[Rfam]
RNA sequence: GGGAUAUGAUGAGUGGUUAAAACUCGCUUGUUUACUGCGAGAGGAGUGUCCGCCCCAAGCCUGGUUACGACAAGCGGAGCACUCCGAUAUAUACCAAUCUGAUCCC
Number, nucleotide and partner (000 for none) at each position: 001g106002g105003g104004a103005u000006a000007u000008g000009a000010u000011g000012a000013g000014u097015g000016g095017u000018u093019a000020a000021a000022a000023c041024u040025c039026g038027c037028u000029u000030g000031u000032u000033u000034a000035c000036u000037g027038c026039g025040a024041g023042a000043g085044g084045a083046g082047u081048g080049u078050c077051c000052g000053c000054c000055c000056c000057a000058a000059g000060c000061c000062u076063g075064g000065u073066u000067a000068c000069g000070a000071c000072a000073a065074g000075c063076g062077g050078a049079g000080c048081a047082c046083u045084c044085c043086g000087a000088u000089a000090u000091a000092u000093a018094c000095c016096a000097a014098u000099c000100u000101g000102a000103u004104c003105c002106c001
RNA: Small nucleolar RNA Z279/snoR105/snoR108